[Rfam]
RNA sequence: CCUCCCAUCUUGGCAUGAGUUAUCUUAUCCAUGGUAACUUGUGAAUAACAGUGGAGGAAGAGGAAAGGUGGAUCGUCUUCGGUGUUGGAACUUGUGCCAUGUUCUAAAACUGUCCUCUAGGUUCACUACAAAA
Dot-bracket structure: (((((........((((((.((((........)))).)))))).........)))))...........((((((..........(((((((.........)))))))............))))))........

A member of the RNA family "Small nucleolar RNA SNORA57" from Lingula anatina, 133 nucleotides long. It is annotated as an H/ACA-box small nucleolar RNA. A reference for the family is Vitali et al. (2003), "Identification of 13 novel human modification guide RNAs", Nucleic Acids Res. U99 belongs to the H/ACA class of snoRNAs which are thought to guide the sites of modification of uridines to pseudouridines, the target for this family is unknown. The base pairs follow the family's consensus structure, which was predicted with PFOLD. A search with the family's covariance model found it, with a score of 46 bits.